[Rfam]
RNA sequence: AAAAAAAAUGGGCUAAACGCCCAUCAUCUUAUUACCGGUGGUCGCACCUGAGCCGCACAUAAAAAGCCGCACGCCCAGCGACUCCGCGAUUGUAGCCAUUU
Numbered sequence: 001a002a003a004a005a006a007a008a009u010g011g012g013c014u015a016a017a018c019g020c021c022c023a024u025c026a027u028c029u030u031a032u033u034a035c036c037g038g039u040g041g042u043c044g045c046a047c048c049u050g051a052g053c054c055g056c057a058c059a060u061a062a063a064a065a066g067c068c069g070c071a072c073g074c075c076c077a078g079c080g081a082c083u084c085c086g087c088g089a090u091u092g093u094a095g096c097c098a099u100u101u
Stems, first nucleotide, its partner, number of pairs: 008024006039092007050084003054080003
This 101-nucleotide RNA from Paraburkholderia phytofirmans belongs to the Rfam family "Burkholderia sRNA Bp1_Cand612_SIPHT". Pairs were carried over by alignment from the consensus structure, which was predicted with RNAalifold. It is annotated as a small RNA. The source organism's lineage runs through Bacteria, Pseudomonadati, Burkholderiales, Burkholderiaceae and Paraburkholderia phytofirmans. The literature on the family includes a 2012 paper in BMC Genomics by Khoo et al., "Computational discovery and RT-PCR validation of novel Burkholderia conserved and Burkholderia pseudomallei unique sRNAs". Rfam's curators put it in the seed alignment.